[Rfam]
RNA sequence: ACGCGCUGGCGGGACUCGGUGAAAUUCCGAACCGGCGGUGAUCUGGCACGUUUGUGCUGGUAAGCCCGCGACCCGGACGUUGCAACUGACGGACGGUGGACCUGGUGAGACUCCGGGGCCGACGGUUGAUCGAUUGCGGCACUACGCCGCCGGUCAGACAGUCCGGAUGGGAGACAGCGCGC
Numbered sequence: 001a002c003g004c005g006c007u008g009g010c011g012g013g014a015c016u017c018g019g020u021g022a023a024a025u026u027c028c029g030a031a032c033c034g035g036c037g038g039u040g041a042u043c044u045g046g047c048a049c050g051u052u053u054g055u056g057c058u059g060g061u062a063a064g065c066c067c068g069c070g071a072c073c074c075g076g077a078c079g080u081u082g083c084a085a086c087u088g089a090c091g092g093a094c095g096g097u098g099g100a101c102c103u104g105g106u107g108a109g110a111c112u113c114c115g116g117g118g119c120c121g122a123c124g125g126u127u128g129a130u131c132g133a134u135u136g137c138g139g140c141a142c143u144a145c146g147c148c149g150c151c152g153g154u155c156a157g158a159c160a161g162u163c164c165g166g167a168u169g170g171g172a173g174a175c176a177g178c179g180c181g182c
Base pairs, nucleotide, nucleotide: 003180004179005178006177007176008175010173017029018028019027033121034120035069036068037067038066064119065118073096074095101117102116103115104114105113123165124164125163